A member of the RNA family "Group II catalytic intron D1-D4-3" from Allorhodopirellula solitaria, 173 nucleotides long. Rfam's curators write: Group II introns are found in rRNA, tRNA and mRNA of organelles in fungi, plants and protists, and also in mRNA in bacteria. Gene Ontology term of the family: Group II intron splicing. The source organism's lineage runs through Bacteria, Pseudomonadati, Planctomycetota, Pirellulaceae and Allorhodopirellula.

[Rfam]
RNA sequence: AAGCCAGUAAUGAGUCGUCGCUGGCACGCACCCAACGCCAAAGCUGCGGGGUAACGAACAGAAACGCGAUUGAGGCUCUGGGAGUCAUUGAGGUGAGCGGCCCCAGGACUGCGAAACCGUCUUCCGACAACCUCCUGAGUAGAUCGCGUGCUCGCGCAGCGAAAGUUCACGUC
Dot-bracket structure: .(..((....))..).................(.....(...(((((((((((...........((((((....(((..(((.((......(((..((((........))))...)))...........)).)))..)))..))))))))))).))))))....).....)..